[Rfam]
RNA sequence: GUUCUUUGGUCAUAUAUGGCCCGAUUCAUUUAAUAUGAAUAUGAACUACGCUAUAUGCUGGGAAUGCCUAAAUCUAGCCAUAAUUACUAUGAACAUAAGAGGUCUACUUAUUGAAUCAAGUGAAAAUAUUAUGUCUAAGGUACAAUCAGCAGGUAACCAAUGACACAAAAGUAGUCUAGUAGGAACCUCAGAGACUAUAUGCGUAGCACCUUAUUCCUAUCUUUCUAUGAAUAGCUAGCCGGUCUAAUCGAUGGUGAUAAAUGCCUUCAAGUAAGCAAACAGGGAUAUACUUCUCUGGAAAUUCCUUUGGGGCUAGAAGAUCUAAAAGCUUAUAAACCUGAUAAUAAUCAUCAUAAAGCAUGGUUAAAUUUUAAAUGGAAUAAGGUGAAGAUAUAGUCCAUCUCUCAAAUAACUAGUAU
Numbered sequence: 001g002u003u004c005u006u007u008g009g010u011c012a013u014a015u016a017u018g019g020c021c022c023g024a025u026u027c028a029u030u031u032a033a034u035a036u037g038a039a040u041a042u043g044a045a046c047u048a049c050g051c052u053a054u055a056u057g058c059u060g061g062g063a064a065u066g067c068c069u070a071a072a073u074c075u076a077g078c079c080a081u082a083a084u085u086a087c088u089a090u091g092a093a094c095a096u097a098a099g100a101g102g103u104c105u106a107c108u109u110a111u112u113g114a115a116u117c118a119a120g121u122g123a124a125a126a127u128a129u130u131a132u133g134u135c136u137a138a139g140g141u142a143c144a145a146u147c148a149g150c151a152g153g154u155a156a157c158c159a160a161u162g163a164c165a166c167a168a169a170a171g172u173a174g175u176c177u178a179g180u181a182g183g184a185a186c187c188u189c190a191g192a193g194a195c196u197a198u199a200u201g202c203g204u205a206g207c208a209c210c211u212u213a214u215u216c217c218u219a220u221c222u223u224u225c226u227a228u229g230a231a232u233a234g235c236u237a238g239c240c241g242g243u244c245u246a247a248u249c250g251a252u253g254g255u256g257a258u259a260a261a262u263g264c265c266u267u268c269a270a271g272u273a274a275g276c277a278a279a280c281a282g283g284g285a286u287a288u289a290c291u292u293c294u295c296u297g298g299a300a301a302u303u304c305c306u307u308u309g310g311g312g313c314u315a316g317a318a319g320a321u322c323u324a325a326a327a328g329c330u331u332a333u334a335a336a337c338c339u340g341a342u343a344a345u346a347a348u349c350a351u352c353a354u355a356a357a358g359c360a361u362g363g364u365u366a367a368a369u370u371u372u373a374a375a376u377g378g379a380a381u382a383a384g385g386u387g388a389a390g391a392u393a394u395a396g397u398c399c400a401u402c403u404c405u406c407a408a409a410u411a412a413c414u415a416g417u418a419u
Stems, first nucleotide, its partner, number of pairs: 005024002008021005046206004051201001056151006065142005152187002157182001163177001165175002191399001193398005209385009405416001407414001
RNA: Group I catalytic intron